[Rfam]
RNA: mir-9/mir-79 microRNA precursor family
Nucleotides: 073
Base pairs, nucleotide, nucleotide: 001073002072003071004070005069007067008066009065010064012062013061014060015059016058017057018056020054021053022052023051024050025049026048028046029045030044031043032042033041
Number, partner (000 for none) and nucleotide at each position: 001073c002072a003071c004070u005069c006000c007067g008066u009065g010064u011000c012062u013061u014060u015059g016058g017057u018056u019000a020054u021053c022052u023051a024050g025049c026048u027000g028046u029045a030044u031043g032042a033041g034000u035000u036000u037000u038000a039000a040000u041033u042032u043031c044030a045029u046028a047000a048026a049025g050024c051023u052022a053021g054020a055000g056018a057017a058016c059015c060014g061013a062012a063000a064010g065009u066008a067007u068000g069005g070004a071003g072002u073001g